[Rfam]
The family of this 189-nucleotide sequence from Eremococcus coleocola is "6S / SsrS RNA". Taxonomically the source falls in Eremococcus coleocola (Bacteria, Bacillati, Bacillota, Eremococcus).
RNA sequence: AAGCGUCUGAGAUGUGCGUUGUUCAUAUAUCGUGUGGACCGAACACUUCUAAUCAAGGGAUCCUAUGAUUUUGUAACAAUGACGAGCCAAUGAAACUUUGGAUGUCAAGACCUAUAAAUGUGGAGCCCACCUGUAUAUACUUACAGGUUCAGUACAUAUAUGUACAUAGACGGCAUCAUCGGAUUCUUU
Dot-bracket structure: .((.((((((.((((.(((...............((((((................(((.(((.......(((((......((...((((.......))))..)).......)))))....))).))).................))))))..................)))))))..)))))).))..